[Rfam]
RNA sequence: UUUUUACAAAACUUGGCACUGGAAGAAUUCACAGAUUGUAUUUGAAUCGUGGAUCUUUUGAUGCCAUAUUUUGUGAAGA
Numbered sequence: 001u002u003u004u005u006a007c008a009a010a011a012c013u014u015g016g017c018a019c020u021g022g023a024a025g026a027a028u029u030c031a032c033a034g035a036u037u038g039u040a041u042u043u044g045a046a047u048c049g050u051g052g053a054u055c056u057u058u059u060g061a062u063g064c065c066a067u068a069u070u071u072u073g074u075g076a077a078g079a
Stems, first nucleotide, its partner, number of pairs: 003077008014066005020060003023056001025055002029052004034047001
This 79-nucleotide RNA sequence from Brassicogethes aeneus belongs to the Rfam family "mir-263 microRNA precursor family". Pairs were carried over by alignment from the consensus structure, which was predicted with RNAalifold. Its family is annotated with RISC complex and miRNA-mediated post-transcriptional gene silencing in the Gene Ontology. Clan: mir-182 clan.